[Rfam]
This 116-nucleotide sequence from Caminicella sporogenes belongs to the Rfam family "SAM riboswitch aptamer (S box leader)". Its family is annotated with regulation of gene expression in the Gene Ontology. Taxonomically the source falls in Caminicella sporogenes (Bacteria, Bacillati, Clostridia, Caminicellaceae).
RNA sequence: CUCUUAUCAAGAGUGACGGAGGGAACUGGCCCUAUGAAGUCCGGCAACCAGUACAUUGAUUAUGUACAGUGUACAAUGGUGCUAAUUCCAGCGGUAGAAAUACCGGCAGAUGAGAG
Numbered sequence: 001c002u003c004u005u006a007u008c009a010a011g012a013g014u015g016a017c018g019g020a021g022g023g024a025a026c027u028g029g030c031c032c033u034a035u036g037a038a039g040u041c042c043g044g045c046a047a048c049c050a051g052u053a054c055a056u057u058g059a060u061u062a063u064g065u066a067c068a069g070u071g072u073a074c075a076a077u078g079g080u081g082c083u084a085a086u087u088c089c090a091g092c093g094g095u096a097g098a099a100a101u102a103c104c105g106g107c108a109g110a111u112g113a114g115a116g
Stems, first nucleotide, its partner, number of pairs: 001116008013042001015041003021032003026091004043083004048079002051074008087108001092105005